Rfam assigns this 76-nucleotide RNA sequence from Ceuthmochares aereus to the family "Small nucleolar RNA SNORD101". NCBI's taxonomy places the organism under Eukaryota, Vertebrata, Amniota, Neognathae, Ceuthmochares. Rfam 15.1 lists 658 matches to the family in 617 species. Its family is annotated with nucleolus and RNA processing in the Gene Ontology. By type it is a C/D-box small nucleolar RNA. The family's consensus secondary structure was predicted with PFOLD. The literature on the family includes a 2003 paper in Nucleic Acids Res by Vitali et al., "Identification of 13 novel human modification guide RNAs". A search with the family's covariance model found it, with a score of 77 bits.
RNA sequence: GUUUGGGUGAUGACUUAAUGAUUUUGUCGGAUACCCCUUCACUCCUCUUAUGAGUGAGAACUACAGUCUGACGAAC
Dot-bracket structure: (((((..................................................................)))))